RNA sequence: UACAAUCUCCCAGAUUUCUUUACCUCCACAAACCCUAUUCUGGUUUUGUGGAGGUAAAGAAAUCUGGGAGAUUGUA
Numbered sequence: 001u002a003c004a005a006u007c008u009c010c011c012a013g014a015u016u017u018c019u020u021u022a023c024c025u026c027c028a029c030a031a032a033c034c035c036u037a038u039u040c041u042g043g044u045u046u047u048g049u050g051g052a053g054g055u056a057a058a059g060a061a062a063u064c065u066g067g068g069a070g071a072u073u074g075u076a
Base pairs, nucleotide, nucleotide: 007070008069009068010067011066012065013064014063015062016061017060018059019058020057021056022055023054024053025052026051027050028049029048030047